[Rfam]
RNA sequence: CGGCCCAUUAUUACUUUUGGUACGCGCUAUGCCACUCUCAACUCGUACCGUGAGUAAUAAUGC
Numbered sequence: 001c002g003g004c005c006c007a008u009u010a011u012u013a014c015u016u017u018u019g020g021u022a023c024g025c026g027c028u029a030u031g032c033c034a035c036u037c038u039c040a041a042c043u044c045g046u047a048c049c050g051u052g053a054g055u056a057a058u059a060a061u062g063c
Base pairs, nucleotide, nucleotide: 006062007061008060009059010058011057012056013055014054015053018050019049020048021047022046023045024044026042
Dot-bracket structure: .....((((((((((..(((((((.(...............).)))))))..)))))))))).

Shown here is a 63-nucleotide RNA from Takifugu rubripes, a member of the family "mir-126 microRNA precursor family".
The base pairs follow the family's consensus structure, which was predicted with RNAalifold.
Lineage of the source: Eukaryota > Chordata > Neopterygii > Tetraodontiformes > Takifugu.
Gene Ontology terms of the family: RISC complex and miRNA-mediated post-transcriptional gene silencing.
A reference for the family is Altuvia et al. (2005), "Clustering and conservation patterns of human microRNAs", Nucleic Acids Res.